[Rfam]
RNA sequence: AAUAAGAAUCGGUAGGUGAGGUUACCAUAGGGAUACGGGUUGCUGCCGCGGAGUAGUGGAGACACUAUGAGAAGGUUAGCAGAAUACGUCGAGUUUAAGGCGUAUUUUAACGCAAUUUCAUUGCCCUAUGAAGCUAAAGCUUGAACGGAAUAAAUAA
Numbered sequence: 001a002a003u004a005a006g007a008a009u010c011g012g013u014a015g016g017u018g019a020g021g022u023u024a025c026c027a028u029a030g031g032g033a034u035a036c037g038g039g040u041u042g043c044u045g046c047c048g049c050g051g052a053g054u055a056g057u058g059g060a061g062a063c064a065c066u067a068u069g070a071g072a073a074g075g076u077u078a079g080c081a082g083a084a085u086a087c088g089u090c091g092a093g094u095u096u097a098a099g100g101c102g103u104a105u106u107u108u109a110a111c112g113c114a115a116u117u118u119c120a121u122u123g124c125c126c127u128a129u130g131a132a133g134c135u136a137a138a139g140c141u142u143g144a145a146c147g148g149a150a151u152a153a154a155u156a157a
Base pairs, nucleotide, nucleotide: 007151009149010148011146013098015141016140017139020135021134022133026130027129028128029127030126031125032124039116040115041114042113043112046074049071055066056065057064058063082107083106084105085104088101089100090099
The family of this 157-nucleotide RNA sequence from Clostridium sp. Maddingley MBC34-26 is "M-box riboswitch aptamer (ykoK leader)". Pairs were carried over by alignment from the consensus structure. Rfam links the family to the GO terms regulation of gene expression and response to magnesium ion. For this family Rfam cites "New RNA motifs suggest an expanded scope for riboswitches in bacterial genetic control" (Barrick et al., Proc Natl Acad Sci U S A, 2004). A search with the family's covariance model found it, with a score of 98 bits. Rfam describes the family as follows. M-box riboswitch, also know as ykoK leader is described as a metaloregulatory RNA that sense divalent metals and function as a genetic control element of genes related to divalent metal transport in bacteria. It was first reported upstream of the B.subtilis ykoK gene and genes with related functions in other bacteria.